[Rfam]
RNA sequence: CAGUGCCUUAGCAGCACGUAAAUAUUGGCGUUAAGAUUCUAAAAUUAUCUCCAGUAUUAACUGUGCUGCUGAAGUAAGG
Number, nucleotide and partner (000 for none) at each position: 001c079002a000003g000004u000005g000006c000007c000008u072009u071010a070011g069012c068013a067014g066015c065016a064017c063018g062019u060020a000021a058022a057023u056024a055025u054026u053027g052028g051029c000030g049031u000032u000033a000034a000035g000036a000037u000038u000039c000040u000041a000042a000043a000044a000045u000046u000047a000048u000049c030050u000051c028052c027053a026054g025055u024056a023057u022058u021059a000060a019061c000062u018063g017064u016065g015066c014067u013068g012069c011070u010071g009072a008073a000074g000075u000076a000077a000078g000079g001
Shown here is a 79-nucleotide sequence from Sus scrofa, a member of the family "mir-15 microRNA precursor family". The literature on the family includes a 2001 paper in Science by Lagos-Quintana et al., "Identification of novel genes coding for small expressed RNAs". Its family is annotated with miRNA-mediated post-transcriptional gene silencing and RISC complex in the Gene Ontology. It is one of the family's seed sequences. From the family's description: This family represents the related mir-15a and mir-15b sequences. In humans miR-15a and miR-16 are clustered within 0.5 kb at 13q14. This region has been shown to be deleted in more than half of B cell chronic lymphocytic leukaemias (CLL). Both miR-15a and miR-16 are deleted or down-regulated in more than two thirds of CLL cases. Its Rfam clan is "mir-15 clan". The family's consensus secondary structure was predicted with RNAalifold.